This 70-nucleotide RNA from Crypturellus soui belongs to the Rfam family "tRNA".
Gene Ontology term of the family: triplet codon-amino acid adaptor activity.
[Rfam]
RNA sequence: GUGAAUAUAGUUUCAACCCAAACAUUAGAUUGUGAUUCUAAAAAUAGAAGUUUAAACCUUCUUAUUCACC
Numbered sequence: 001g002u003g004a005a006u007a008u009a010g011u012u013u014c015a016a017c018c019c020a021a022a023c024a025u026u027a028g029a030u031u032g033u034g035a036u037u038c039u040a041a042a043a044a045u046a047g048a049a050g051u052u053u054a055a056a057c058c059u060u061c062u063u064a065u066u067c068a069c070c
Base pairs, nucleotide, nucleotide: 001069002068003067004066005065006064007063010023011022012021013020025041026040027039028038029037046062047061048060049059050058

It is annotated as a transfer RNA.